This 105-nucleotide sequence from Heterocephalus glaber belongs to the Rfam family "Small nucleolar RNA SNORD124". A reference for the family is Yang et al. (2006), "snoSeeker: an advanced computational package for screening of guide and orphan snoRNA genes in the human genome", Nucleic Acids Res. The source organism's lineage runs through Eukaryota, Tetrapoda, Eutheria, Rodentia and Heterocephalus. It is annotated as a C/D-box small nucleolar RNA.
[Rfam]
RNA sequence: CGGACCCCAGGAAGGGAUGAUGUUCUGACUGGCACUCAAGAAAAGGAUUCUGAGCCUCCCUCGGGCGCUGAAGGAGCCCUCUGCUCCUGACCUUCCCUGGGCAGC
Numbered sequence: 001c002g003g004a005c006c007c008c009a010g011g012a013a014g015g016g017a018u019g020a021u022g023u024u025c026u027g028a029c030u031g032g033c034a035c036u037c038a039a040g041a042a043a044a045g046g047a048u049u050c051u052g053a054g055c056c057u058c059c060c061u062c063g064g065g066c067g068c069u070g071a072a073g074g075a076g077c078c079c080u081c082u083g084c085u086c087c088u089g090a091c092c093u094u095c096c097c098u099g100g101g102c103a104g105c
Base pairs, nucleotide, nucleotide: 010096011095012094013093014092015091